[Rfam]
RNA: Archaeal signal recognition particle RNA
RNA sequence: AAGUGGACUAGGUCGGGCAGUUUGGCCCUGCUCGUUACCCGCGCUAUGGUCAUUAGCGGGGACCGAACGCCGCGGGCGUCCGGUCAGACCGACCGGGGCCCCGGGAGCCAACAUGGAAGCCUCGUCCGUCGGGGACAGCGGUCCACGAUGGCCGUCCGCAGGGACGACCCAUCGUGGUUAGCCGGCGACAGCCCAUCAGGCGCGGAAGCGAGCAGUGGACCGCCGGACACCUGUCGCUCGCCGGGUCGCGGGGUGGAGAAGGCAACCGGGAUUCCCCCGGUCGGAACGCCGGGCAAUCGCGGUCGUCCACCA
Numbered sequence: 001a002a003g004u005g006g007a008c009u010a011g012g013u014c015g016g017g018c019a020g021u022u023u024g025g026c027c028c029u030g031c032u033c034g035u036u037a038c039c040c041g042c043g044c045u046a047u048g049g050u051c052a053u054u055a056g057c058g059g060g061g062a063c064c065g066a067a068c069g070c071c072g073c074g075g076g077c078g079u080c081c082g083g084u085c086a087g088a089c090c091g092a093c094c095g096g097g098g099c100c101c102c103g104g105g106a107g108c109c110a111a112c113a114u115g116g117a118a119g120c121c122u123c124g125u126c127c128g129u130c131g132g133g134g135a136c137a138g139c140g141g142u143c144c145a146c147g148a149u150g151g152c153c154g155u156c157c158g159c160a161g162g163g164a165c166g167a168c169c170c171a172u173c174g175u176g177g178u179u180a181g182c183c184g185g186c187g188a189c190a191g192c193c194c195a196u197c198a199g200g201c202g203c204g205g206a207a208g209c210g211a212g213c214a215g216u217g218g219a220c221c222g223c224c225g226g227a228c229a230c231c232u233g234u235c236g237c238u239c240g241c242c243g244g245g246u247c248g249c250g251g252g253g254u255g256g257a258g259a260a261g262g263c264a265a266c267c268g269g270g271a272u273u274c275c276c277c278c279g280g281u282c283g284g285a286a287c288g289c290c291g292g293g294c295a296a297u298c299g300c301g302g303u304c305g306u307c308c309a310c311c312a
Base pairs, nucleotide, nucleotide: 003310004309005308006307007306008305011064012063013062014061015033016032017031018030019029020028038060039059040058041057042056069303070302071301072300073299074298075297078294079293080292081291082289089284090283091282092281093280094279095278096277097276098275100270101269102268103267104266107263108262109261112258114256119254120253121252122251123250124249125248126244127243128242130240131239132238133237134235135234136233137232138231140228141179143177144176145175146174147173148172149171150170151168153166154165155164156163157162182226183225184224185223186222187221193218194217195216196215201210202209203208